The family of this 69-nucleotide RNA is "tRNA". Pairs were carried over by alignment from the consensus structure, which is taken from published work.
[Rfam]
RNA sequence: GUAAACAUAGUUUAAUCAAAACAUUAGAUUGUGAAUCUAACAAUAGAGGCUCGAAACCUCUUGCUUACC
Numbered sequence: 001g002u003a004a005a006c007a008u009a010g011u012u013u014a015a016u017c018a019a020a021a022c023a024u025u026a027g028a029u030u031g032u033g034a035a036u037c038u039a040a041c042a043a044u045a046g047a048g049g050c051u052c053g054a055a056a057c058c059u060c061u062u063g064c065u066u067a068c069c
Base pairs, nucleotide, nucleotide: 001068002067003066004065006063007062010022011021012020013019024040025039026038027037028036045061046060047059048058049057